S4-Clostridia ribosomal protein leader: a 69-nucleotide RNA from Mus musculus. A reference for the family is Eckert and Weinberg (2020), "Discovery of 20 novel ribosomal leader candidates in bacteria and archaea", BMC Microbiol. Its Rfam clan is "Ribosomal Protein S4 Leader clan". It is annotated as a cis-regulatory leader. NCBI's taxonomy places the organism under Eukaryota, Opisthokonta, Eumetazoa, Muridae, Mus.

RNA sequence: GAAAGGCUGGAGAAAAUGUUCCAGCUGGAAGUUAGGGACCCAAUUUCUACCUGGCUUCUCAACCUUAAG
Dot-bracket structure: ....(((((((........)))))))((((((((((.............))))))))))..........